This 168-nucleotide sequence from Crinalium epipsammum belongs to the Rfam family "c-di-AMP riboswitch aptamer (ydaO/yuaA leader)". The match comes from Rfam's covariance-model search (64 bits). The source organism's lineage runs through Bacteria, Cyanobacteriota, Gomontiellales, Gomontiellaceae and Crinalium epipsammum. The pairing is the family consensus, mapped onto this sequence.
RNA sequence: GAAUCAAGUCAGCCUAGUCCAAAAUAUUCACCAGCUUGGUGAACAAGGAGCGGGGGAACCAUAUUAAGGGGCUUAUUUCUGAAAUGUUCUUUGAUUAAAAGACACAGAAAGGGACAUCUCUCAGCCCUAGCCCGUCAGCUAACUCCGUAGGCAUUGAGAGGAGACUGA
Number, nucleotide and partner (000 for none) at each position: 001g000002a000003a000004u000005c000006a000007a000008g000009u000010c000011a000012g152013c151014c150015u000016a000017g000018u049019c048020c047021a000022a000023a000024a000025u000026a000027u000028u000029c000030a000031c000032c000033a000034g000035c000036u000037u000038g000039g000040u000041g000042a000043a000044c000045a000046a000047g020048g019049a018050g148051c147052g146053g145054g144055g143056g000057a000058a000059c000060c068061a000062u000063a000064u000065u000066a000067a000068g060069g133070g132071g131072c000073u000074u000075a000076u000077u109078u108079c107080u106081g000082a000083a000084a000085u000086g000087u000088u000089c000090u000091u000092u000093g000094a000095u000096u000097a000098a000099a000100a000101g000102a000103c000104a000105c000106a080107g079108a078109a077110a000111g000112g127113g126114a000115c124116a000117u000118c000119u000120c000121u000122c000123a000124g115125c000126c113127c112128u000129a000130g000131c071132c070133c069134g000135u000136c000137a000138g000139c000140u000141a000142a000143c055144u054145c053146c052147g051148u050149a000150g014151g013152c012153a000154u000155u000156g000157a000158g000159a000160g000161g000162a000163g000164a000165c000166u000167g000168a000

This family represents a conserved RNA structure found upstream of the ydaO and yuaA genes in Bacillus subtilis and related genes in other bacteria.